[Rfam]
RNA sequence: UUCUUAUCAAGAGAGGCAGAGGGACUGGCCCGAGGAAGCCUCAGCAACCGCCGAUUUACGGCAAGGUGCUAAUUCCAGCAAGUUGAAAGCGACUUGGGAGAUAAGAU
Numbered sequence: 001u002u003c004u005u006a007u008c009a010a011g012a013g014a015g016g017c018a019g020a021g022g023g024a025c026u027g028g029c030c031c032g033a034g035g036a037a038g039c040c041u042c043a044g045c046a047a048c049c050g051c052c053g054a055u056u057u058a059c060g061g062c063a064a065g066g067u068g069c070u071a072a073u074u075c076c077a078g079c080a081a082g083u084u085g086a087a088a089g090c091g092a093c094u095u096g097g098g099a100g101a102u103a104a105g106a107u
Base pairs, nucleotide, nucleotide: 002106003105004104005103006102007101008100013042014041015040016039017038021031022030023029025078026077027076028075043070044069045068046067048066049065050062051061052060053059074099079096080095081094082093083092084091
Annotation: The record is a 107-nucleotide RNA sequence from Bacillus aquiflavi, which matches "SAM riboswitch aptamer (S box leader)" in Rfam. About the family: The SAM riboswitch is found upstream of a number of genes which code for proteins involved in methionine or cysteine biosynthesis in Gram-positive bacteria. Pairs were carried over by alignment from the consensus structure, which is taken from published work.